RNA sequence: ACCCCACACUAAUUAAGCCGACCUUCUUGAUGUAUCUUUAUCGGAAGCGUGUGCUCGUUGUGGGAACAGCAAAGUCUGCGCAUUGUGUAUGGUUGUUUUAUUUUCUCCUAAAUUCAACCAAAGUAUUAGCGCAGGACA
Dot-bracket structure: ....................((.(.(((................))).).)).........................((((........((((((.(.(...........))..))))))........))))......
RNA: Small nucleolar RNA snoR639/H1